Shown here is a 72-nucleotide sequence from Ecytonucleospora hepatopenaei, a member of the family "tRNA".
It is annotated as a transfer RNA.
On this family, see Hou, Trends Biochem Sci 1993: "The tertiary structure of tRNA and the development of the genetic code".
The source organism's lineage runs through Eukaryota, Fungi, Apansporoblastina, Enterocytozoonidae and Ecytonucleospora.
Rfam describes the family as follows. Transfer RNA (tRNA) molecules are approximately 80 nucleotides in length. Their secondary structure includes four short double-helical elements and three loops (D, anti-codon, and T loops).
A search with the family's covariance model found it, with a score of 66 bits.
Nucleotides: 072
Base pairs, nucleotide, nucleotide: 001071002070003069004068005067006066007065010024011023012022013021027041028040029039030038048064049063050062051061052060
Number, partner (000 for none) and nucleotide at each position: 001071g002070a003069u004068c005067g006066c007065a008000u009000a010024g011023c012022u013021c014000a015000a016000u017000g018000g019000u020000a021013g022012a023011g024010c025000a026000g027041u028040g029039g030038u031000c032000u033000u034000c035000g036000g037000a038030a039029c040028c041027a042000a043000a044000g045000g046000u047000u048064g049063u050062g051061g052060g053000u054000u055000c056000g057000a058000a059000u060052c061051c062050c063049g064048u065007u066006g067005c068004g069003a070002u071001u072000g